Purine riboswitch aptamer: a 100-nucleotide RNA sequence from Paenibacillus sp. J31TS4. The family has 133 seed sequences and 4,097 matches in Rfam 15.1.
RNA sequence: CAUCUAAAUAGUCGUCCGACUCGUAUAAUCGCAGGAAUCGGCCUGCCAGUCUCUACCCGGCCACCGGAAUGGCCGGACUACGAGUGAAUGCCCGCCCUCU
Numbered sequence: 001c002a003u004c005u006a007a008a009u010a011g012u013c014g015u016c017c018g019a020c021u022c023g024u025a026u027a028a029u030c031g032c033a034g035g036a037a038u039c040g041g042c043c044u045g046c047c048a049g050u051c052u053c054u055a056c057c058c059g060g061c062c063a064c065c066g067g068a069a070u071g072g073c074c075g076g077a078c079u080a081c082g083a084g085u086g087a088a089u090g091c092c093c094g095c096c097c098u099c100u
Stems, first nucleotide, its partner, number of pairs: 019085007029048001031046005057076007
Overview: The match comes from Rfam's covariance-model search (67 bits).